[Rfam]
RNA sequence: CAAUCCGAGGAGCGCUGCAGGGCCGUCGAUCGACGGUUUCAGGCUCGGAUUCCUUAAACGGCGCUCAUCCGAC
Dot-bracket structure: .(((((((............((((((......))))))......)))))))......................
RNA: SAH (S-adenosyl-L-homocysteine) riboswitch aptamer